[Rfam]
RNA sequence: AAUUGAUUGGCUUACAUCAAACCUGUUGUGAUUUAAGUUAACCAAUACAGACUACGCCAGUUGCCGAGCUAGACUCCGACUGGCGUCGUUUUUGU
Dot-bracket structure: .((((.((((((((.((((.........)))).)))))))).))))...(((.((((((((((..(((.....))))))))))))).))).....
Rfam assigns this 95-nucleotide RNA sequence from Streptococcus merionis to the family "23S methyl RNA motif".
A reference for the family is Weinberg et al. (2007), "Identification of 22 candidate structured RNAs in bacteria using the CMfinder comparative genomics pipeline", Nucleic Acids Res.
Its family is annotated with regulation of gene expression in the Gene Ontology.